[Rfam]
RNA sequence: GGUAAGUGACAGCUACGGCAUCACUUCCCGACCAUAUAUGGUCAGCCGUUUUUAUCCUCCUUCGGGGAACACACUUAUAGGUUCGAUAGAACACUGAAUAAUUAAUUUAAAAGGUGGUGUCGGC
Numbered sequence: 001g002g003u004a005a006g007u008g009a010c011a012g013c014u015a016c017g018g019c020a021u022c023a024c025u026u027c028c029c030g031a032c033c034a035u036a037u038a039u040g041g042u043c044a045g046c047c048g049u050u051u052u053u054a055u056c057c058u059c060c061u062u063c064g065g066g067g068a069a070c071a072c073a074c075u076u077a078u079a080g081g082u083u084c085g086a087u088a089g090a091a092c093a094c095u096g097a098a099u100a101a102u103u104a105a106u107u108u109a110a111a112a113g114g115u116g117g118u119g120u121c122g123g124c
Base pairs, nucleotide, nucleotide: 001028002027004026005025006024007023008022009021012019013018058067059066060065081124083123084122085121086120087119092116093115094114095113101108
Background: The record is a 124-nucleotide RNA sequence, which matches "Bacteriophage Diversity-Generating Retroelement RNA" in Rfam. For this family Rfam cites "RNA control of reverse transcription in a diversity-generating retroelement" (Handa et al., Nature, 2025).